[Rfam]
RNA sequence: CUUCUAGGACGACCUAGAGGACAACGCCUAGAGGACGACCUC
Numbered sequence: 001c002u003u004c005u006a007g008g009a010c011g012a013c014c015u016a017g018a019g020g021a022c023a024a025c026g027c028c029u030a031g032a033g034g035a036c037g038a039c040c041u042c
Base pairs, nucleotide, nucleotide: 001020002019003018004017005016006015007014008013031042032041033040034039
The family of this 42-nucleotide sequence from Ixodes scapularis is "Guanidine-II riboswitch aptamer (mini-ykkC)". About the family: Simpler in structure and has fewer highly conserved nucleotide positions than the ykkC-yxkD leader. Despite this each of its two stem-loop structures directly bind free guanidine. Therefore, mini-ykkC RNA motif represents a distinct class of guanidine-sensing RNAs. Its crystal structure was also determined. The base pairs follow the family's consensus structure, which is taken from published work.